Rfam assigns this 85-nucleotide sequence from Caenorhabditis latens to the family "mir-791 microRNA precursor family". The source organism's lineage runs through Eukaryota, Eumetazoa, Bilateria, Rhabditidae and Caenorhabditis. Its family is annotated with RISC complex and miRNA-mediated post-transcriptional gene silencing in the Gene Ontology. A reference for the family is Ruby et al. (2006), "Large-scale sequencing reveals 21U-RNAs and additional microRNAs and endogenous siRNAs in C. elegans", Cell.
RNA sequence: GAAUUCUCAAUCACCUUAUCACGUUUGGCCAAAGUCAACCGUAAACUGAACUUUGGCACUCCGCUGAUUGGGUGAUGGAGUUUUU
Dot-bracket structure: (((...((.(((((((.(((.....(.((((((((..............))))))))).......))).))))))).))...)))